Overview
Shown here is a 68-nucleotide RNA sequence from Culex quinquefasciatus, a member of the family "mir-87 microRNA precursor family". A reference for the family is Aravin et al. (2003), "The small RNA profile during Drosophila melanogaster development", Dev Cell.
RNA sequence: CUCUGGCCAGCCUGAAGUUUGCUAAACCUGGUUCGUCAAGGUGAGCAAAUUUUCAGGUGUGUCGGAGA
Numbered sequence: 001c002u003c004u005g006g007c008c009a010g011c012c013u014g015a016a017g018u019u020u021g022c023u024a025a026a027c028c029u030g031g032u033u034c035g036u037c038a039a040g041g042u043g044a045g046c047a048a049a050u051u052u053u054c055a056g057g058u059g060u061g062u063c064g065g066a067g068a
Base pairs, nucleotide, nucleotide: 002066003065004064005063006062007061010058011057012056013055014054015053016051017050018049019048020047022045023044025042027041028040029039

The family's consensus secondary structure was predicted with RNAalifold.
Its family is annotated with miRNA-mediated post-transcriptional gene silencing and RISC complex in the Gene Ontology.
The organism belongs to Culex pipiens complex, within Eukaryota.